[Rfam]
RNA: Acido-Lenti-1 RNA
Organism: Candidatus Magnetoglobus multicellularis
RNA sequence: CCUGGGGUUGAAAUCCCAGGCUAUUAUCUGUCGUCCCUAGCGGGACU
Numbered sequence: 001c002c003u004g005g006g007g008u009u010g011a012a013a014u015c016c017c018a019g020g021c022u023a024u025u026a027u028c029u030g031u032c033g034u035c036c037c038u039a040g041c042g043g044g045a046c047u
Stems, first nucleotide, its partner, number of pairs: 001020008033046005